RNA sequence: GUUUUCCUUCGGGGUAGGGUGAAAUUCCCAACCGGCGGUGAUCGAUUGCAUGAAGUGCAAUCGUCAGUCCGUGACCCGAUUCCGUCAAUAUUCUUAUAUGUUGCGGAAGCGGUGGACCUGGUGCGAAUCCGGGACCGACAGUAUAGUCUGGAUGGGAGAAGGAGACG
Numbered sequence: 001g002u003u004u005u006c007c008u009u010c011g012g013g014g015u016a017g018g019g020u021g022a023a024a025u026u027c028c029c030a031a032c033c034g035g036c037g038g039u040g041a042u043c044g045a046u047u048g049c050a051u052g053a054a055g056u057g058c059a060a061u062c063g064u065c066a067g068u069c070c071g072u073g074a075c076c077c078g079a080u081u082c083c084g085u086c087a088a089u090a091u092u093c094u095u096a097u098a099u100g101u102u103g104c105g106g107a108a109g110c111g112g113u114g115g116a117c118c119u120g121g122u123g124c125g126a127a128u129c130c131g132g133g134a135c136c137g138a139c140a141g142u143a144u145a146g147u148c149u150g151g152a153u154g155g156g157a158g159a160a161g162g163a164g165a166c167g
Stems, first nucleotide, its partner, number of pairs: 003165008017029003031147002033137002035072004067135002076112002117133005139150003

This 167-nucleotide sequence from Paenibacillus abyssi belongs to the Rfam family "FMN riboswitch aptamer (RFN element)".
Pairs were carried over by alignment from the consensus structure, which is taken from published work.
The RFN element is a highly conserved domain that is found frequently in the 5'-untranslated regions of prokaryotic mRNAs that encode for flavin mononucleotide (FMN) biosynthesis and transport proteins.